[Rfam]
This 129-nucleotide RNA from Pseudoflavonifractor sp. An176 belongs to the Rfam family "FMN riboswitch aptamer (RFN element)".
A search with the family's covariance model found it, with a score of 112 bits.
NCBI's taxonomy places the organism under Bacteria, Bacillota, Clostridia, Eubacteriales, Pseudoflavonifractor.
The RFN element is a highly conserved domain that is found frequently in the 5'-untranslated regions of prokaryotic mRNAs that encode for flavin mononucleotide (FMN) biosynthesis and transport proteins. This element is a metabolite-dependent riboswitch that directly binds FMN in the absence of proteins. In Bacillus subtilis, the riboswitch most likely controls gene expression by causing premature transcription termination within the 5' untranslated region of the ribDEAHT operon and precluding access to the ribosome-binding site of ypaA mRNA.The FMN riboswitch structure, reported in present an FMN-bound six-stem junction, adopts a butterfly-like scaffold, stapled together by opposingly directed but nearly identically folded peripheral domains.
RNA sequence: CCAUGUCUUCAGGGCGGGGUGAAAUUCCCCACUGGCGGUAUAGUCCGCGACCCGCAGAGCCUUGGUUCUGCGGCUGACCCGGUGAAACUCCGGGACCAACGGUUACAGUCCGGAUGGAAGAGGAUGUGC
Numbered sequence: 001c002c003a004u005g006u007c008u009u010c011a012g013g014g015c016g017g018g019g020u021g022a023a024a025u026u027c028c029c030c031a032c033u034g035g036c037g038g039u040a041u042a043g044u045c046c047g048c049g050a051c052c053c054g055c056a057g058a059g060c061c062u063u064g065g066u067u068c069u070g071c072g073g074c075u076g077a078c079c080c081g082g083u084g085a086a087a088c089u090c091c092g093g094g095a096c097c098a099a100c101g102g103u104u105a106c107a108g109u110c111c112g113g114a115u116g117g118a119a120g121a122g123g124a125u126g127u128g129c
Base pairs, nucleotide, nucleotide: 003127004126005125006124007123008122009121010120017029018028019027031109032108033098034097035048036047037046038045043096044095052073053072078094079093080092081091082090100112101111102110
Dot-bracket structure: ..((((((((......(((.......))).[[((((((....[[))))...((..................))....(((((.......)))))]])).(((.....]]))).......))))))))..